[Rfam]
RNA sequence: CUUACGGUGGUCUCUAAUUCGCUUGGUGCAGGUCGGGAACCGACUUCGCCGCUCCGGCAGCGCCGGAGGCACGCGGCGGCCUACGAUUGGUUGCUGAGCGAAUUCCGAUCCCGCCUUGCAUCAACUGAAUCGGAGACGGCGGUGAUG
Numbered sequence: 001c002u003u004a005c006g007g008u009g010g011u012c013u014c015u016a017a018u019u020c021g022c023u024u025g026g027u028g029c030a031g032g033u034c035g036g037g038a039a040c041c042g043a044c045u046u047c048g049c050c051g052c053u054c055c056g057g058c059a060g061c062g063c064c065g066g067a068g069g070c071a072c073g074c075g076g077c078g079g080c081c082u083a084c085g086a087u088u089g090g091u092u093g094c095u096g097a098g099c100g101a102a103u104u105c106c107g108a109u110c111c112c113g114c115c116u117u118g119c120a121u122c123a124a125c126u127g128a129a130u131c132g133g134a135g136a137c138g139g140c141g142g143u144g145a146u147g
Stems, first nucleotide, its partner, number of pairs: 013134002017130004023124010034113005040107001
The record is a 147-nucleotide RNA from Vitis vinifera, which matches "MIR168 microRNA precursor family" in Rfam. The base pairs follow the family's consensus structure, which was predicted with WAR. The source organism's lineage runs through Eukaryota, Streptophyta, Euphyllophyta, eudicotyledons and Vitis. Rfam links the family to the GO terms RISC complex and miRNA-mediated post-transcriptional gene silencing.